The record is a 56-nucleotide RNA from Nocardia speluncae, which matches "F6 TB sRNA" in Rfam. On this family, see Arnvig and Young, Mol Microbiol 2009: "Identification of small RNAs in Mycobacterium tuberculosis". A search with the family's covariance model found it, with a score of 56 bits.

RNA sequence: CGGUUGGCUCCGUGUAUUCGCCUGACCCCCGACCCGGCGACUACACGGGGCCACUU
Numbered sequence: 001c002g003g004u005u006g007g008c009u010c011c012g013u014g015u016a017u018u019c020g021c022c023u024g025a026c027c028c029c030c031g032a033c034c035c036g037g038c039g040a041c042u043a044c045a046c047g048g049g050g051c052c053a054c055u056u
Stems, first nucleotide, its partner, number of pairs: 002055003007051010018040005